[Rfam]
RNA sequence: UCGUCGACGAUGGUCGGCGAGAUGAAGUGGAUAUGGGUGUCGAUGCCGCCGGCGGUGAGUAUCUUGCCGUUGCCCGCGAGGACUUCGGUCUCCGGGCCGAUGACGAGAUCGGGGUGUACGCCGUCCAUCGUGUCCGGGUUGCCGGACUUGCCGAUGCCGGUGAUGCGUCCGUCGCGCAUGCCGAUGUCGGCCUUGACGAUGCCCCAGUGAUCGAUGAUCACGGCGCCGGUGAUGACGGUGUCGGGGGCGCCUUCGGCGCGGGUCGUGCGGGACUGCCCCAUCGACUCGCGG
Numbered sequence: 001u002c003g004u005c006g007a008c009g010a011u012g013g014u015c016g017g018c019g020a021g022a023u024g025a026a027g028u029g030g031a032u033a034u035g036g037g038u039g040u041c042g043a044u045g046c047c048g049c050c051g052g053c054g055g056u057g058a059g060u061a062u063c064u065u066g067c068c069g070u071u072g073c074c075c076g077c078g079a080g081g082a083c084u085u086c087g088g089u090c091u092c093c094g095g096g097c098c099g100a101u102g103a104c105g106a107g108a109u110c111g112g113g114g115u116g117u118a119c120g121c122c123g124u125c126c127a128u129c130g131u132g133u134c135c136g137g138g139u140u141g142c143c144g145g146a147c148u149u150g151c152c153g154a155u156g157c158c159g160g161u162g163a164u165g166c167g168u169c170c171g172u173c174g175c176g177c178a179u180g181c182c183g184a185u186g187u188c189g190g191c192c193u194u195g196a197c198g199a200u201g202c203c204c205c206a207g208u209g210a211u212c213g214a215u216g217a218u219c220a221c222g223g224c225g226c227c228g229g230u231g232a233u234g235a236c237g238g239u240g241u242c243g244g245g246g247g248c249g250c251c252u253u254c255g256g257c258g259c260g261g262g263u264c265g266u267g268c269g270g271g272a273c274u275g276c277c278c279c280a281u282c283g284a285c286u287c288g289c290g291g
Stems, first nucleotide, its partner, number of pairs: 001291003005288003008162002011159003016074005028051003032048001035046001037044002055067003076151001079148002083144001088142002092138002095134003102129002107125003111121001167277001170275002175269006181262002190224003194220002204213001229257001234252001238250003
This 291-nucleotide RNA sequence from Streptomyces sp. MZ04 belongs to the Rfam family "5' ureB small RNA".
Gene Ontology term of the family: negative regulation of gene expression.
The family has 13 seed sequences and 4,812 matches in Rfam 15.1.
The family's consensus secondary structure was predicted with mfold.